[Rfam]
Nucleotides: 137
Base pairs, nucleotide, nucleotide: 003136004135005134006133008131010129011128012127013126014125015124016123017122018121019120020119021118023116024115025114026112027111028110029109030108
Number, partner (000 for none) and nucleotide at each position: 001000g002000a003136u004135g005134g006133a007000a008131a009000a010129u011128u012127c013126c014125g015124a016123a017122g018121g019120g020119a021118u022000c023116g024115c025114a026112u027111g028110a029109u030108c031000c032000a033000a034000u035000g036000a037000g038000u039000a040000c041000u042000g043000a044000c045000u046000g047000a048000a049000u050000c051000a052000a053000c054000a055000a056000a057000a058000a059000u060000c061000a062000a063000u064000a065000a066000u067000c068000a069000a070000u071000u072000c073000g074000u075000u076000a077000a078000g079000g080000u081000u082000u083000u084000c085000a086000a087000g088000g089000a090000a091000g092000c093000c094000c095000a096000u097000c098000a099000u100000c101000a102000a103000c104000a105000u106000u107000a108030g109029a110028u111027c112026a113000a114025u115024g116023c117000g118021a119020u120019c121018c122017c123016u124015u125014u126013g127012g128011a129010g130000c131008u132000c133006u134005c135004c136003a137000c